[Rfam]
RNA sequence: GCCGCCCCUAGCUCGACGGAGCGAAAAGCCGGACACCCUGCCGGCCUGGGGCGGUGCCUCUUUUCAGGG
Numbered sequence: 001g002c003c004g005c006c007c008c009u010a011g012c013u014c015g016a017c018g019g020a021g022c023g024a025a026a027a028g029c030c031g032g033a034c035a036c037c038c039u040g041c042c043g044g045c046c047u048g049g050g051g052c053g054g055u056g057c058c059u060c061u062u063u064u065c066a067g068g069g
Stems, first nucleotide, its partner, number of pairs: 001055008011022004028045005036069005
Dot-bracket structure: ((((((((..((((....)))).....(((((...[[[[[)))))..)))))))).........]]]]]
RNA: int-alpA RNA
Organism: Azoarcus olearius